[Rfam]
RNA sequence: ACAAAAGAGGCAGGAUGAUUAAAUUCCUGUCGAUCUCGCGGUCAAGUCUUGGGAGGAUUAGAUCUUAGGCGCGCUUCGUCGCAGCCCCGGUAACGGUUACGGAUCACGCGAUACUUUGAAAACAAGGCUUCUGGCCUUGUUUUUUUUU
Number, nucleotide and partner (000 for none) at each position: 001a000002c000003a148004a147005a146006a145007g000008a000009g000010g000011c029012a028013g027014g026015a025016u000017g000018a000019u000020u000021a000022a000023a000024u000025u015026c014027c013028u012029g011030u000031c000032g000033a000034u000035c000036u000037c110038g109039c108040g107041g000042u000043c000044a000045a000046g058047u057048c056049u055050u000051g000052g000053g000054a000055g049056g048057a047058u046059u000060a000061g105062a104063u103064c102065u101066u000067a000068g086069g085070c084071g082072c081073g080074c000075u000076u000077c000078g000079u000080c073081g072082c071083a000084g070085c069086c068087c096088c095089g094090g000091u000092a000093a000094c089095g088096g087097u000098u000099a000100c000101g065102g064103a063104u062105c061106a000107c040108g039109c038110g037111a000112u000113a000114c000115u000116u000117u000118g000119a000120a000121a141122a140123c139124a138125a137126g136127g135128c134129u000130u000131c000132u000133g000134g128135c127136c126137u125138u124139g123140u122141u121142u000143u000144u000145u006146u005147u004148u003
Shown here is a 148-nucleotide sequence from Arminella tumorigenes, a member of the family "Alphaproteobacterial sRNA ar9".
It scores 134 bits against the family's covariance model.
It is annotated as a small RNA.